[Rfam]
RNA: mir-172 microRNA precursor family
RNA sequence: UUUAUUGCUGCUGCAGCAUCAUCAAGAUUCCCAUAUCAAAGAGCUAAUCGAUUUGGGAGCAAUUAGGGACCACCCCAAAACAAAAUCCCCUAGAAGCAUGUGAAUCUUGAUGAUGCUCCAUCAGCAAUCAG
Number, nucleotide and partner (000 for none) at each position: 001u000002u000003u000004a000005u000006u000007g000008c000009u000010g122011c000012u120013g119014c000015a117016g116017c115018a114019u113020c112021a111022u110023c109024a108025a107026g106027a105028u104029u103030c102031c000032c100033a099034u000035a000036u000037c000038a000039a000040a000041g000042a000043g000044c000045u000046a000047a000048u000049c000050g000051a000052u000053u000054u000055g000056g000057g000058a000059g000060c000061a000062a000063u000064u000065a000066g000067g000068g000069a000070c000071c000072a000073c000074c000075c000076c000077a000078a000079a000080a000081c000082a000083a000084a000085a000086u000087c000088c000089c000090c000091u000092a000093g000094a000095a000096g000097c000098a000099u033100g032101u000102g030103a029104a028105u027106c026107u025108u024109g023110a022111u021112g020113a019114u018115g017116c016117u015118c000119c013120a012121u000122c010123a000124g000125c000126a000127a000128u000129c000130a000131g000